[Rfam]
RNA sequence: CCCCAGUUCCUAGAUCUAGGAAAGAUCCCGUGGCGUUGUGAGGACG
Dot-bracket structure: .((((((.((..(((((.....)))))....)).))))...))...
RNA: Insect-Specific Flavivirus 3' UTR repeats Rb